This 46-nucleotide RNA from Enterococcus sp. HSIEG1 belongs to the Rfam family "uup RNA". NCBI's taxonomy places the organism under Bacteria, Bacillati, Lactobacillales, Enterococcaceae, Enterococcus. The family's RNA type in Rfam is cis-regulatory element. Rfam's curators put it in the seed alignment.
RNA sequence: AGAAAAUCUGCUCUUAACAAGAACACGAUGAAGCAUUGUUAAGAGC
Numbered sequence: 001a002g003a004a005a006a007u008c009u010g011c012u013c014u015u016a017a018c019a020a021g022a023a024c025a026c027g028a029u030g031a032a033g034c035a036u037u038g039u040u041a042a043g044a045g046c
Stems, first nucleotide, its partner, number of pairs: 011045005017039003